[Rfam]
RNA: Archaeal large subunit ribosomal RNA, nucleotides 1786 to 2208
Organism: Candidatus Korarchaeum cryptofilum
RNA sequence: GUCCUAACGCGGGAGAGGGAACUCGGCAAAUUGGCCCCGUAACUUCGGGAGAUGGGGUGCCUGCGUUCCUCCGAAAGGGGGUCCGCAGGUCGCAGUGACAAGGGGCGCCCGACUGUUUAACAAAAACAUAGUUCCCCGCGAGCCCGCAAGGGUGUGUACGGGGGAUGAGGCCUGGCCAAUGCCGGUACCUGAAGCCCCGGUACAACGGGGUGAAGGGCCGGUGAAAGCCGGGAGUAACUCUGACUCUCUUAACGGCAGGUCCCCACUGCCCCCCGAAAGAAAUUUUAAUCCCUCAGUGAGUGAAAGCGCAAUGGACGGAAGGAUAGAAGGGUAUGUGGUGGGAUUCAUAGAUGCUGAAGGGAGCUUCUCUGUGAGCAUAAAGUUACAGAAAGGCCUCAGAUAUGGAAUCCGCCUCGAUCCUGU
Dot-bracket structure: ((.....((((((.(.((...............(((((....(....).....)))))(((((((..((.......)).....)))))))(...).......(((..(((...(((.........)))..(((((((((..((((....))))..)..))))))))...(((.(((...((((((..(((....(((((......)))))....))))))))..).)))((((((.......))))))(........)..............................(((.((...................)).)))..........))).....).))..))).................)).))))))).))..............(((.........................)))..
Numbered sequence: 001g002u003c004c005u006a007a008c009g010c011g012g013g014a015g016a017g018g019g020a021a022c023u024c025g026g027c028a029a030a031u032u033g034g035c036c037c038c039g040u041a042a043c044u045u046c047g048g049g050a051g052a053u054g055g056g057g058u059g060c061c062u063g064c065g066u067u068c069c070u071c072c073g074a075a076a077g078g079g080g081g082u083c084c085g086c087a088g089g090u091c092g093c094a095g096u097g098a099c100a101a102g103g104g105g106c107g108c109c110c111g112a113c114u115g116u117u118u119a120a121c122a123a124a125a126a127c128a129u130a131g132u133u134c135c136c137c138g139c140g141a142g143c144c145c146g147c148a149a150g151g152g153u154g155u156g157u158a159c160g161g162g163g164g165a166u167g168a169g170g171c172c173u174g175g176c177c178a179a180u181g182c183c184g185g186u187a188c189c190u191g192a193a194g195c196c197c198c199g200g201u202a203c204a205a206c207g208g209g210g211u212g213a214a215g216g217g218c219c220g221g222u223g224a225a226a227g228c229c230g231g232g233a234g235u236a237a238c239u240c241u242g243a244c245u246c247u248c249u250u251a252a253c254g255g256c257a258g259g260u261c262c263c264c265a266c267u268g269c270c271c272c273c274c275g276a277a278a279g280a281a282a283u284u285u286u287a288a289u290c291c292c293u294c295a296g297u298g299a300g301u302g303a304a305a306g307c308g309c310a311a312u313g314g315a316c317g318g319a320a321g322g323a324u325a326g327a328a329g330g331g332u333a334u335g336u337g338g339u340g341g342g343a344u345u346c347a348u349a350g351a352u353g354c355u356g357a358a359g360g361g362a363g364c365u366u367c368u369c370u371g372u373g374a375g376c377a378u379a380a381a382g383u384u385a386c387a388g389a390a391a392g393g394c395c396u397c398a399g400a401u402a403u404g405g406a407a408u409c410c411g412c413c414u415c416g417a418u419c420c421u422g423u
Stems, first nucleotide, its partner, number of pairs: 001376002008373006015367001017365002034058005043048001059090007068078002091095001103346003108341002110338001114128003131166008139156001142153004170332003174229003180225001181222005188217003195210005230248006249258001289319003293315002391421003